[Rfam]
RNA sequence: AGGCAACCCCUUUUCGAUAAUUGUUUGAAAUAGAGGUAUUAAUUAGCUCAUAAAAAAAAUUCAUUUUACGCUAUUAGAUUCACCGAAAUAUACUUAUAUCUUUAAAGCUGGUCUACUAAUCUUAAGCACAAU
Numbered sequence: 001a002g003g004c005a006a007c008c009c010c011u012u013u014u015c016g017a018u019a020a021u022u023g024u025u026u027g028a029a030a031u032a033g034a035g036g037u038a039u040u041a042a043u044u045a046g047c048u049c050a051u052a053a054a055a056a057a058a059a060u061u062c063a064u065u066u067u068a069c070g071c072u073a074u075u076a077g078a079u080u081c082a083c084c085g086a087a088a089u090a091u092a093c094u095u096a097u098a099u100c101u102u103u104a105a106a107g108c109u110g111g112u113c114u115a116c117u118a119a120u121c122u123u124a125a126g127c128a129c130a131a132u
Stems, first nucleotide, its partner, number of pairs: 002040002005037001007036002009033001012030006065126003070121001072119001076114005083107001088099002
The record is a 132-nucleotide sequence from Solanum lycopersicum, which matches "Small nucleolar RNA snoR77" in Rfam.
Rfam 15.1 lists 649 matches to the family in 221 species.
Pairs were carried over by alignment from the consensus structure, which was predicted with WAR.
For this family Rfam cites "Experimental RNomics: identification of 140 candidates for small non-messenger RNAs in the plant Arabidopsis thaliana" (Marker et al., Curr Biol, 2002).